Rfam assigns this 78-nucleotide RNA sequence from Schistosoma mansoni to the family "mir-3492 microRNA precursor family".
The base pairs follow the family's consensus structure, which was predicted with RNAalifold.
Taxonomically the source falls in Schistosoma (Eukaryota, Lophotrochozoa, Platyhelminthes, Trematoda).
Nucleotides: 078
Stems, first nucleotide, its partner, number of pairs: 002077001005074002008071001010069004016064002020061003024058007
Number, partner (000 for none) and nucleotide at each position: 001000u002077g003000c004000c005074u006073u007000c008071u009000g010069u011068a012067u013066c014000u015000g016064u017063g018000c019000u020061g021060a022059g023000a024058u025057u026056u027055c028054g029053u030052c031000a032000c033000a034000u035000a036000c037000c038000a039000g040000a041000c042000c043000u044000u045000a046000a047000g048000g049000g050000c051000u052030g053029a054028u055027g056026a057025g058024a059022c060021u061020c062000c063017c064016a065000a066013g067012a068011u069010a070000a071008g072000u073006g074005a075000a076000a077002c078000g